[Rfam]
RNA sequence: AUAAUGAAACUUCCGUAACUCGCGGCCCGGCCAUAACGAAGGCGGGGUGGCUGAAGAAGCCAAUGU
Numbered sequence: 001a002u003a004a005u006g007a008a009a010c011u012u013c014c015g016u017a018a019c020u021c022g023c024g025g026c027c028c029g030g031c032c033a034u035a036a037c038g039a040a041g042g043c044g045g046g047g048u049g050g051c052u053g054a055a056g057a058a059g060c061c062a063a064u065g066u
Stems, first nucleotide, its partner, number of pairs: 012063001013025004026047003030043003048062003